[Rfam]
RNA sequence: AGCCAAACAACGAGCACAAAGCGAACUAUUCUUUCGCCUUUUACUAAAGAAUACCGUGUUGUCGUUGAAUAAAUUGGCAUACGCCUAUUUUUGGAGAGCUUCUUCCUUUCCAACCA
Numbered sequence: 001a002g003c004c005a006a007a008c009a010a011c012g013a014g015c016a017c018a019a020a021g022c023g024a025a026c027u028a029u030u031c032u033u034u035c036g037c038c039u040u041u042u043a044c045u046a047a048a049g050a051a052u053a054c055c056g057u058g059u060u061g062u063c064g065u066u067g068a069a070u071a072a073a074u075u076g077g078c079a080u081a082c083g084c085c086u087a088u089u090u091u092u093g094g095a096g097a098g099c100u101u102c103u104u105c106c107u108u109u110c111c112a113a114c115c116a
Base pairs, nucleotide, nucleotide: 003077004076005075006074008067009066010065011064012063013062016059017058018057027053028052029051030050031049032048033047034046098115100113101112
Record summary
Rfam assigns this 116-nucleotide sequence from Artemisia annua to the family "U5 spliceosomal RNA". For this family Rfam cites "The uRNA database" (Zwieb, Nucleic Acids Res, 1997). It is annotated as a spliceosomal small nuclear RNA. U5 RNA is a component of both types of known spliceosome. The precise function of this molecule is unknown, though it is known that the 5' loop is required for splice site selection and p220 binding, and that both the 3' stem-loop and the Sm site are important for Sm protein binding and cap methylation.